[Rfam]
RNA sequence: AAGGGGGGAUGUUCGACUAAGGUUUCCACGUCCUGUGGCAUCGUCGAUCUACCUUACGUCUUGUAGG
Number, nucleotide and partner (000 for none) at each position: 001a000002a000003g000004g000005g000006g000007g000008g000009a000010u000011g049012u000013u047014c046015g045016a044017c043018u000019a000020a000021g000022g000023u000024u000025u000026c038027c037028a036029c035030g000031u000032c000033c000034u000035g029036u028037g027038g026039c000040a000041u000042c000043g017044u016045c015046g014047a013048u000049c011050u000051a000052c000053c067054u066055u065056a064057c063058g000059u000060c000061u000062u000063g057064u056065a055066g054067g053
The record is a 67-nucleotide sequence from Halobacillus halophilus, which matches "Bacillaceae-1 RNA" in Rfam. A search with the family's covariance model found it, with a score of 50 bits. Pairs were carried over by alignment from the consensus structure, which is taken from published work. The organism belongs to Halobacillus halophilus, within Bacteria.